The record is an 89-nucleotide sequence from Neorhizobium alkalisoli, which matches "Glycine riboswitch aptamer" in Rfam. The base pairs follow the family's consensus structure. A search with the family's covariance model found it, with a score of 63 bits.
[Rfam]
RNA sequence: CGCAUACCCGAUGGGAGAAACCGCUUCGAUGCGGUGCCGAAGGAGCAACCGCCCCGGAAACUCUCAGGCAAAAGGACCACGGGUAGCCG
Numbered sequence: 001c002g003c004a005u006a007c008c009c010g011a012u013g014g015g016a017g018a019a020a021c022c023g024c025u026u027c028g029a030u031g032c033g034g035u036g037c038c039g040a041a042g043g044a045g046c047a048a049c050c051g052c053c054c055c056g057g058a059a060a061c062u063c064u065c066a067g068g069c070a071a072a073a074g075g076a077c078c079a080c081g082g083g084u085a086g087c088c089g
Stems, first nucleotide, its partner, number of pairs: 006084005012079003021034004036069003039065002043063003049057002